small nucleolar RNA snoR135: a 145-nucleotide RNA sequence from Triticum urartu. The family's RNA type in Rfam is H/ACA-box small nucleolar RNA. The family has 6 seed sequences and 837 matches in Rfam 15.1. Pairs were carried over by alignment from the consensus structure, which was predicted with RNAalifold. NCBI's taxonomy places the organism under Eukaryota, Magnoliopsida, Poales, Pooideae, Triticum.
RNA sequence: UUUGCAGGAUAAGUGUGUAUCGGUUAAAUGCUUUUUGCUGUGCAUAUAUUACUUAAAUUGUUUCCUGCUAUAUUAAUUGUAAGAAGGUGGGCAGUUGGGUUGAGCUUGAUAAUCUCUUUUGCCAACAAUCAUUUUCCACCCAUUU
Numbered sequence: 001u002u003u004g005c006a007g008g009a010u011a012a013g014u015g016u017g018u019a020u021c022g023g024u025u026a027a028a029u030g031c032u033u034u035u036u037g038c039u040g041u042g043c044a045u046a047u048a049u050u051a052c053u054u055a056a057a058u059u060g061u062u063u064c065c066u067g068c069u070a071u072a073u074u075a076a077u078u079g080u081a082a083g084a085a086g087g088u089g090g091g092c093a094g095u096u097g098g099g100u101u102g103a104g105c106u107u108g109a110u111a112a113u114c115u116c117u118u119u120u121g122c123c124a125a126c127a128a129u130c131a132u133u134u135u136c137c138a139c140c141c142a143u144u145u
Base pairs, nucleotide, nucleotide: 004068005067006066007065008064009063015045016044017043018042019041020040083136084135085134086133087132088131089130090129094126095125096124097123
For this family Rfam cites "Mining small RNA sequencing data: a new approach to identify small nucleolar RNAs in Arabidopsis" (Chen and Wu, Nucleic Acids Res, 2009).